[Rfam]
RNA sequence: CUUCGCUGGCCAGCCCAACGAAGAAAGUGUUUGGGAAACAACGACUUACUGUCCUAGUACACGUCUCGUUUCCCCCUUCUUA
Numbered sequence: 001c002u003u004c005g006c007u008g009g010c011c012a013g014c015c016c017a018a019c020g021a022a023g024a025a026a027g028u029g030u031u032u033g034g035g036a037a038a039c040a041a042c043g044a045c046u047u048a049c050u051g052u053c054c055u056a057g058u059a060c061a062c063g064u065c066u067c068g069u070u071u072c073c074c075c076c077u078u079c080u081u082a
Stems, first nucleotide, its partner, number of pairs: 001023005007017003029078001033074007043065003050059003
The family of this 82-nucleotide RNA sequence from Pusillimonas sp. T2 is "Proteobacterial sRNA sX8". On this family, see Schmidtke et al., Nucleic Acids Res 2011: "Genome-wide transcriptome analysis of the plant pathogen Xanthomonas identifies sRNAs with putative virulence functions". The match comes from Rfam's covariance-model search (77 bits). Rfam classes the family as a small RNA.